[Rfam]
RNA: Actino-pnp RNA
Nucleotides: 072
Base pairs, nucleotide, nucleotide: 001072002071004069005068006067007066009064010063011062012061013060017056018055019054020053021052023050024049025048026047031046032045033044034043035042
Number, partner (000 for none) and nucleotide at each position: 001072a002071u003000c004069g005068g006067u007066c008000c009064u010063c011062g012061g013060u014000u015000g016000u017056g018055g019054c020053u021052c022000c023050c024049g025048g026047g027000c028000c029000a030000a031046a032045u033044u034043u035042a036000u037000u038000a039000a040000u041000u042035u043034a044033a045032a046031u047026c048025c049024c050023g051000u052021g053020g054019g055018c056017u057000u058000c059000c060013a061012u062011c063010g064009a065000a066007g067006a068005u069004c070000c071002g072001u